Rfam assigns this 149-nucleotide RNA sequence from Corynebacterium maris to the family "atpB RNA". The base pairs follow the family's consensus structure, which is taken from published work.

RNA sequence: CGCAGGCUGUCACGACGAUGUGCGACGGAAUCCGGGGCAGCCGAAGAAAAGAUUACGACGUCCAUCGCACCGCACCAACGAGCACGGGCUUGAAAACCCCGCCAGCUUGGGGCGGCCCGAACACGGGAGAGAACGCUGAGCGUUUCAAC
Numbered sequence: 001c002g003c004a005g006g007c008u009g010u011c012a013c014g015a016c017g018a019u020g021u022g023c024g025a026c027g028g029a030a031u032c033c034g035g036g037g038c039a040g041c042c043g044a045a046g047a048a049a050a051g052a053u054u055a056c057g058a059c060g061u062c063c064a065u066c067g068c069a070c071c072g073c074a075c076c077a078a079c080g081a082g083c084a085c086g087g088g089c090u091u092g093a094a095a096a097c098c099c100c101g102c103c104a105g106c107u108u109g110g111g112g113c114g115g116c117c118c119g120a121a122c123a124c125g126g127g128a129g130a131g132a133a134c135g136c137u138g139a140g141c142g143u144u145u146c147a148a149c
Base pairs, nucleotide, nucleotide: 001046005042006041007040008039009038010037011036070115071114072113073112075110076109077108078107